RNA sequence: AAUCGUGCUCCGGGGUCGGUGCAAGUCCGAGCCGGCGGUGACAGUCCGCGACCCGCUGCAGUUGCAGCGGUUGAUCUGGUGAAACUCCAGAACCGACGGUGAAAGUCCGGAUGGGAGGCAGCACGGAC
Dot-bracket structure: ..((((((((......(((.......))).[[((((((.....[[))))...((..............))....(((((.......)))))]])).(((.....]]))).......)..)))))))..

FMN riboswitch aptamer (RFN element): a 128-nucleotide RNA sequence from Microlunatus phosphovorus.